[Rfam]
RNA sequence: GAAGGUUUUGUGGCCCUUCGGCGUCGCCUCCGCGGGGGGAGGCGUCAAACCACCUCAAGCCGCAUUGGCUGAAGACCGUUGUGGUGAGCGUUGAGGAAAAGGCACACGUGAUGUGUCAGGU
Numbered sequence: 001g002a003a004g005g006u007u008u009u010g011u012g013g014c015c016c017u018u019c020g021g022c023g024u025c026g027c028c029u030c031c032g033c034g035g036g037g038g039g040a041g042g043c044g045u046c047a048a049a050c051c052a053c054c055u056c057a058a059g060c061c062g063c064a065u066u067g068g069c070u071g072a073a074g075a076c077c078g079u080u081g082u083g084g085u086g087a088g089c090g091u092u093g094a095g096g097a098a099a100a101g102g103c104a105c106a107c108g109u110g111a112u113g114u115g116u117c118a119g120g121u
Stems, first nucleotide, its partner, number of pairs: 001019005020046006028039004051120001053096006059085002062082003066078003101117006
Group II catalytic intron D1-D4-2: a 121-nucleotide RNA sequence from Saccharopolyspora phatthalungensis. On this family, see Bonen and Vogel, Trends Genet 2001: "The ins and outs of group II introns". Lineage of the source: Bacteria > Bacillati > Actinomycetota > Pseudonocardiaceae > Saccharopolyspora.